The record is a 168-nucleotide part of an RNA from Apophysomyces sp. BC1034, which matches "Eukaryotic small subunit ribosomal RNA" in Rfam. Gene Ontology terms of the family: ribosome and structural constituent of ribosome. A search with the family's covariance model found it, with a score of 1714 bits. Taxonomically the source falls in Apophysomyces (Eukaryota, Mucoromycota, Mucoromycetes, Mucorineae). The base pairs follow the family's consensus structure, which is taken from published work.
[Rfam]
RNA sequence: CCGCCCGUCGCUACUACCGAUUGAGUGGCCAAGACCAGAACAUGGGAUUGCUUUGGGAGAGUUGGCAACAACUAGCCUUUGAAGCGAGAACUCGUUCGAGUCUGACUGCUUAGAGGAAGUAAAAGUCGUAACAAGGUUUCCGUAGGUGAACCUGCGGAAGGAUCAUUA
Numbered sequence: 001c002c003g004c005c006c007g008u009c010g011c012u013a014c015u016a017c018c019g020a021u022u023g024a025g026u027g028g029c030c031a032a033g034a035c036c037a038g039a040a041c042a043u044g045g046g047a048u049u050g051c052u053u054u055g056g057g058a059g060a061g062u063u064g065g066c067a068a069c070a071a072c073u074a075g076c077c078u079u080u081g082a083a084g085c086g087a088g089a090a091c092u093c094g095u096u097c098g099a100g101u102c103u104g105a106c107u108g109c110u111u112a113g114a115g116g117a118a119g120u121a122a123a124a125g126u127c128g129u130a131a132c133a134a135g136g137u138u139u140c141c142g143u144a145g146g147u148g149a150a151c152c153u154g155c156g157g158a159a160g161g162a163u164c165a166u167u168a
Stems, first nucleotide, its partner, number of pairs: 001135001003132001006128002009125001012121004017116002021112001023111006030104001032103004038097004044091001048087010060073004137160010